[Rfam]
RNA sequence: CUCUUAUCAAGAGAGGUGGAGGGAUGUGCCCGAUGAAACCCGGCAACCGUCAAGUGACAUGGUGCCAAUUCACACAGAUGAGAG
Numbered sequence: 001c002u003c004u005u006a007u008c009a010a011g012a013g014a015g016g017u018g019g020a021g022g023g024a025u026g027u028g029c030c031c032g033a034u035g036a037a038a039c040c041c042g043g044c045a046a047c048c049g050u051c052a053a054g055u056g057a058c059a060u061g062g063u064g065c066c067a068a069u070u071c072a073c074a075c076a077g078a079u080g081a082g083a084g
Stems, first nucleotide, its partner, number of pairs: 001084008013041001015040003021031003027072002042066004047062002049058003070076001

This 84-nucleotide sequence from Schinkia azotoformans belongs to the Rfam family "SAM riboswitch aptamer (S box leader)". Rfam links the family to the GO term regulation of gene expression. NCBI's taxonomy places the organism under Bacteria, Bacillati, Bacillota, Bacillaceae, Schinkia azotoformans.